RNA sequence: AUUGCACUUGACGACGGGAACCGUGCUGAUGUUGACCUCGGUGAUAGGACUGAACCGUUACAAGCUAUCACCGGGUGAACAUUGGUACUGGUCCCUUAGUCAUGA
Numbered sequence: 001a002u003u004g005c006a007c008u009u010g011a012c013g014a015c016g017g018g019a020a021c022c023g024u025g026c027u028g029a030u031g032u033u034g035a036c037c038u039c040g041g042u043g044a045u046a047g048g049a050c051u052g053a054a055c056c057g058u059u060a061c062a063a064g065c066u067a068u069c070a071c072c073g074g075g076u077g078a079a080c081a082u083u084g085g086u087a088c089u090g091g092u093c094c095c096u097u098a099g100u101c102a103u104g105a
Base pairs, nucleotide, nucleotide: 016095017094018093019092021090024087025086026085027084028083029082030081031080032079033078035076036075037074039073041071042070043069044068045067046066

Record summary
The family of this 105-nucleotide RNA sequence from Caenorhabditis remanei is "mir-36 microRNA precursor family".